[Rfam]
RNA sequence: AGCCAAAUGGGGUAACUCAUGUGGUUAUUAAGCAGAAGUCAGCAGAAGCCAUAUGCCUACAUGGAUGUAGGUAGUAGAGC
Numbered sequence: 001a002g003c004c005a006a007a008u009g010g011g012g013u014a015a016c017u018c019a020u021g022u023g024g025u026u027a028u029u030a031a032g033c034a035g036a037a038g039u040c041a042g043c044a045g046a047a048g049c050c051a052u053a054u055g056c057c058u059a060c061a062u063g064g065a066u067g068u069a070g071g072u073a074g075u076a077g078a079g080c
Stems, first nucleotide, its partner, number of pairs: 001026002004023002007020005039046002048080002054073006

Group II catalytic intron D1-D4-1: an 80-nucleotide RNA sequence from Ectothiorhodospiraceae bacterium BW-2. About the family: Group II introns are found in rRNA, tRNA and mRNA of organelles in fungi, plants and protists, and also in mRNA in bacteria. Pairs were carried over by alignment from the consensus structure.